Small nucleolar RNA SNORD18: a 71-nucleotide RNA from Rousettus aegyptiacus. It scores 55 bits against the family's covariance model. The source organism's lineage runs through Eukaryota, Euteleostomi, Amniota, Pteropodoidea and Rousettus. The family is grouped with related families in Rfam's "SNORD18 clan".

[Rfam]
RNA sequence: AGCAGUGAUGAAAGUCUACUCCAUUGGUCCGUGUUUCUGAAUCUGAUGAUUUUCUUGGAUGUUCUGAUGCU
Numbered sequence: 001a002g003c004a005g006u007g008a009u010g011a012a013a014g015u016c017u018a019c020u021c022c023a024u025u026g027g028u029c030c031g032u033g034u035u036u037c038u039g040a041a042u043c044u045g046a047u048g049a050u051u052u053u054c055u056u057g058g059a060u061g062u063u064c065u066g067a068u069g070c071u
Base pairs, nucleotide, nucleotide: 001071002070003069004068